[Rfam]
RNA sequence: UCUUUAAUGAGUAUAUGGGGGUAACCCACUAUUAUUCAACGGGAGAAGUAACAGAAAACAAAAAAGGAGGCCAAAGCCUCCUUUUUUUAUUCAUU
Numbered sequence: 001u002c003u004u005u006a007a008u009g010a011g012u013a014u015a016u017g018g019g020g021g022u023a024a025c026c027c028a029c030u031a032u033u034a035u036u037c038a039a040c041g042g043g044a045g046a047a048g049u050a051a052c053a054g055a056a057a058a059c060a061a062a063a064a065a066g067g068a069g070g071c072c073a074a075a076g077c078c079u080c081c082u083u084u085u086u087u088u089a090u091u092c093a094u095u
Stems, first nucleotide, its partner, number of pairs: 008038001010036003016031003020027001061086011

Shown here is a 95-nucleotide RNA from Photobacterium profundum, a member of the family "sraA". By type it is a small RNA. The family's consensus secondary structure was predicted with RNAalifold. Rfam's curators put it in the seed alignment. A reference for the family is Hershberg et al. (2003), "A survey of small RNA-encoding genes in Escherichia coli", Nucleic Acids Res. NCBI's taxonomy places the organism under Bacteria, Pseudomonadati, Gammaproteobacteria, Photobacterium, Photobacterium profundum.